[Rfam]
RNA sequence: UGUGUGUGAUGGGUUGGCAGUGUACUGUUAGCUGGUUGAAUAUGUAAAUGACCAGCUGACAUGCACCUGCUACCCUAUUGCAUACA
Numbered sequence: 001u002g003u004g005u006g007u008g009a010u011g012g013g014u015u016g017g018c019a020g021u022g023u024a025c026u027g028u029u030a031g032c033u034g035g036u037u038g039a040a041u042a043u044g045u046a047a048a049u050g051a052c053c054a055g056c057u058g059a060c061a062u063g064c065a066c067c068u069g070c071u072a073c074c075c076u077a078u079u080g081c082a083u084a085c086a
Stems, first nucleotide, its partner, number of pairs: 001086013015072006022064003027060010041050003
A member of the RNA family "mir-449 microRNA precursor family" from Jaculus jaculus, 86 nucleotides long.
A reference for the family is Linsen et al. (2010), "Small RNA expression and strain specificity in the rat", BMC Genomics.
Rfam 15.1 lists 325 matches to the family in 192 species.
Clan: mir-34 clan.
The family's consensus secondary structure was predicted with RNAalifold.